[Rfam]
This 118-nucleotide sequence from Picea abies belongs to the Rfam family "MIR3704 microRNA precursor family".
Its family is annotated with RISC complex and miRNA-mediated post-transcriptional gene silencing in the Gene Ontology.
RNA sequence: AAGGCAAUAGGUCUAGGUGGAGUUGGAAAAACUGUCACAAUGCCUAUAUCACAUCAGAUCAGAUGAAAUCAUGAGUGACUGCAUGGGUUUUUCCUCUCCUCCCAGACCCAGUGGCCUU
Numbered sequence: 001a002a003g004g005c006a007a008u009a010g011g012u013c014u015a016g017g018u019g020g021a022g023u024u025g026g027a028a029a030a031a032c033u034g035u036c037a038c039a040a041u042g043c044c045u046a047u048a049u050c051a052c053a054u055c056a057g058a059u060c061a062g063a064u065g066a067a068a069u070c071a072u073g074a075g076u077g078a079c080u081g082c083a084u085g086g087g088u089u090u091u092u093c094c095u096c097u098c099c100u101c102c103c104a105g106a107c108c109c110a111g112u113g114g115c116c117u118u
Stems, first nucleotide, its partner, number of pairs: 001118005007112002010108005017101001019099002022097001025094005031088003038081002041078001048059002